[Rfam]
RNA sequence: UUGCCCAAUGAUUAUAGCAAGACGCGUUAUUAUGAGGACUAAUGCUGGAACUCUUUCUCCUCCUCCUCAUUCUCCUCCUUCUUUGUCCCUUCCUCUUUCACCUUUUACCCCCCUCACUUUCUUUAGGGUAUCCAGCGUCCUGUGAGCAAGACUGAGAUAUGAGGGCAA
Number, nucleotide and partner (000 for none) at each position: 001u168002u167003g166004c165005c164006c163007a000008a000009u000010g000011a000012u000013u000014a000015u000016a000017g000018c000019a000020a000021g000022a000023c000024g000025c000026g000027u000028u000029a000030u000031u000032a000033u000034g000035a054036g053037g052038a000039c000040u049041a000042a000043u000044g000045c000046u000047g000048g000049a040050a000051c000052u037053c036054u035055u000056u000057c000058u000059c000060c000061u000062c000063c000064u000065c000066c000067u000068c000069a000070u000071u000072c000073u000074c000075c000076u000077c000078c000079u000080u000081c000082u000083u000084u000085g000086u000087c000088c000089c000090u000091u000092c000093c000094u000095c000096u000097u000098u000099c000100a000101c000102c000103u000104u000105u000106u000107a000108c000109c000110c000111c000112c000113c000114u000115c000116a000117c000118u000119u000120u000121c000122u000123u000124u000125a000126g000127g000128g000129u000130a000131u000132c000133c000134a000135g000136c000137g000138u000139c000140c000141u000142g000143u000144g000145a000146g000147c000148a000149a000150g000151a000152c000153u000154g000155a000156g000157a000158u000159a000160u000161g000162a000163g006164g005165g004166c003167a002168a001
Shown here is a 168-nucleotide RNA sequence from Illadopsis cleaveri, a member of the family "Small nucleolar RNA SNORD97". By type it is a C/D-box small nucleolar RNA. The base pairs follow the family's consensus structure, which was predicted with WAR. The source organism's lineage runs through Eukaryota, Vertebrata, Sarcopterygii, Australaves and Illadopsis. Rfam links the family to the GO terms nucleolus and RNA processing.